[Rfam]
RNA sequence: UCAUGAGGCAUUGCACCCAGAGUCUGGUUUACCGGACAUUGAACCUGGAGCUUUUGUUUUUAAAUAAAAACCUUUU
Numbered sequence: 001u002c003a004u005g006a007g008g009c010a011u012u013g014c015a016c017c018c019a020g021a022g023u024c025u026g027g028u029u030u031a032c033c034g035g036a037c038a039u040u041g042a043a044c045c046u047g048g049a050g051c052u053u054u055u056g057u058u059u060u061u062a063a064a065u066a067a068a069a070a071c072c073u074u075u076u
Stems, first nucleotide, its partner, number of pairs: 005054005017048004022037005
The family of this 76-nucleotide sequence from Gadus morhua is "U1A polyadenylation inhibition element (PIE)". Rfam links the family to the GO term regulation of mRNA polyadenylation. It is annotated as a cis-regulatory element. About the family: This family represents the U1A polyadenylation inhibition element (PIE). PIE is a regulatory RNA which is responsible for the regulation of the length of the polyA tail of the U1A pre-mRNA. The PIE is located in the U1A mRNA 3' UTR. PIE adopts a U-shaped structure, with binding sites for a single U1A protein at each bend and when complexed with the two proteins it blocks activity of poly(A) polymerase (PAP), and inhibits its activity. The organism belongs to Gadus, within Eukaryota. It scores 67 bits against the family's covariance model. The family's consensus secondary structure is taken from published work. A reference for the family is Clerte and Hall (2004), "Global and Local Dynamics of the U1A Polyadenylation Inhibition Element (PIE) RNA and PIE RNA-U1A Complexes", Biochemistry.